[Rfam]
RNA sequence: UUAUAAGCAAAACUCAAGUUUUCAGAUUCAUUAAAUAACUGAUGUAUUUGGUCUAUAAUAUAGAUCAGAUACAUCAGUUAUUCAAUGAAUCUGAAAAGUGAAUUUUGCUUAUUA
Numbered sequence: 001u002u003a004u005a006a007g008c009a010a011a012a013c014u015c016a017a018g019u020u021u022u023c024a025g026a027u028u029c030a031u032u033a034a035a036u037a038a039c040u041g042a043u044g045u046a047u048u049u050g051g052u053c054u055a056u057a058a059u060a061u062a063g064a065u066c067a068g069a070u071a072c073a074u075c076a077g078u079u080a081u082u083c084a085a086u087g088a089a090u091c092u093g094a095a096a097a098g099u100g101a102a103u104u105u106u107g108c109u110u111a112u113u114a
Base pairs, nucleotide, nucleotide: 003112004111005110006109007108008107009106010105011104012103014101015100016099019097020096021095022094023093024092025091027089028088029087030086031085032084034082035081036080037079038078039077040076041075042074043073044072049067050066051065052064
Rfam assigns this 114-nucleotide RNA from Trifolium medium to the family "MIR2593 microRNA precursor family". Gene Ontology terms of the family: RISC complex and miRNA-mediated post-transcriptional gene silencing.